This 185-nucleotide RNA from Hansenula ciferrii belongs to the Rfam family "Small nucleolar RNA snR8". It is annotated as an H/ACA-box small nucleolar RNA. It scores 110 bits against the family's covariance model. Lineage of the source: Eukaryota > Dikarya > Saccharomycetes > Wickerhamomycetaceae > Hansenula. The literature on the family includes a 1988 paper in Mol Cell Biol by Parker et al., "Genetic analysis of small nuclear RNAs in Saccharomyces cerevisiae: viable sextuple mutant".
[Rfam]
RNA sequence: UUGAUACGAAAUAUGCGUUCUAUUCACUGCAUCAUUAUUUUAAUUUGUUUGAUGAAUGGAGGGGAAAAGAACCGCUAGAAAAAUAGCCCACUAGUCGAACACGACCUCAUACCGAACAUACCAAAAUUAUCUCUUUUGGGAUAAUUUAAUGUGGUGUUUUUUGUAACUGCGUUUUCGAUAUAUUU
Numbered sequence: 001u002u003g004a005u006a007c008g009a010a011a012u013a014u015g016c017g018u019u020c021u022a023u024u025c026a027c028u029g030c031a032u033c034a035u036u037a038u039u040u041u042a043a044u045u046u047g048u049u050u051g052a053u054g055a056a057u058g059g060a061g062g063g064g065a066a067a068a069g070a071a072c073c074g075c076u077a078g079a080a081a082a083a084u085a086g087c088c089c090a091c092u093a094g095u096c097g098a099a100c101a102c103g104a105c106c107u108c109a110u111a112c113c114g115a116a117c118a119u120a121c122c123a124a125a126a127u128u129a130u131c132u133c134u135u136u137u138g139g140g141a142u143a144a145u146u147u148a149a150u151g152u153g154g155u156g157u158u159u160u161u162u163g164u165a166a167c168u169g170c171g172u173u174u175u176c177g178a179u180a181u182a183u184u185u
Base pairs, nucleotide, nucleotide: 015075016074018071019070027061028060030058031057033054034053035052036051037050094179095178096177097176098175101172102171103170112163114161116159118157119156120155121154122153124152132141133140